About this RNA:
Rfam assigns this 45-nucleotide RNA from Setophaga kirtlandii to the family "Histone 3' UTR stem-loop". Lineage of the source: Eukaryota > Opisthokonta > Deuterostomia > Chordata > Setophaga. The base pairs follow the family's consensus structure, which is taken from published work. The family's RNA type in Rfam is cis-regulatory element. A reference for the family is Zhang et al. (2014), "Molecular mechanisms for the regulation of histone mRNA stem-loop-binding protein by phosphorylation", Proc Natl Acad Sci U S A.

RNA sequence: CCAAAGGCUCUUUUAAGAGCCACCAACUUUCUCAUAAGAGAGCUA
Numbered sequence: 001c002c003a004a005a006g007g008c009u010c011u012u013u014u015a016a017g018a019g020c021c022a023c024c025a026a027c028u029u030u031c032u033c034a035u036a037a038g039a040g041a042g043c044u045a
Stems, first nucleotide, its partner, number of pairs: 006021006